[Rfam]
RNA: MIR6217 microRNA precursor family
RNA sequence: UGACUACAAAAUAACUUAUUCUAUAGCCACUUUGAAUUAUGAUAAUUACUUUAUUAAUUUAUAAGAUUAUAGUAACUUCUUACUAAGUUGUUUACUGUAAAUAUCCCUAUGUAUUAUUAGUAACCCAACUAUCGUAAAUAUGUAUUGACAUUAUCGUAAAUUAGUAUAUAAAAUUAUCAUAAAUGGAGGUGGCUACAAAAUAACUUAUUUUGUAGCUG
Numbered sequence: 001u002g003a004c005u006a007c008a009a010a011a012u013a014a015c016u017u018a019u020u021c022u023a024u025a026g027c028c029a030c031u032u033u034g035a036a037u038u039a040u041g042a043u044a045a046u047u048a049c050u051u052u053a054u055u056a057a058u059u060u061a062u063a064a065g066a067u068u069a070u071a072g073u074a075a076c077u078u079c080u081u082a083c084u085a086a087g088u089u090g091u092u093u094a095c096u097g098u099a100a101a102u103a104u105c106c107c108u109a110u111g112u113a114u115u116a117u118u119a120g121u122a123a124c125c126c127a128a129c130u131a132u133c134g135u136a137a138a139u140a141u142g143u144a145u146u147g148a149c150a151u152u153a154u155c156g157u158a159a160a161u162u163a164g165u166a167u168a169u170a171a172a173a174u175u176a177u178c179a180u181a182a183a184u185g186g187a188g189g190u191g192g193c194u195a196c197a198a199a200a201u202a203a204c205u206u207a208u209u210u211u212g213u214a215g216c217u218g
Base pairs, nucleotide, nucleotide: 001218002217004215005214006213007212008211009210010209011208012207013206014205016203017202018201019200020199022197024195025194026193027192028191029190030189031188032187033186037182038181039180040179041178042177043176044175045174046173047172050168052166053165054164055163056162057161058160059159060158061157062156065155066154067153069151070150074145080137081136082135083134087132088131090129091128092127093122094121095120096119097118100115101114102113103112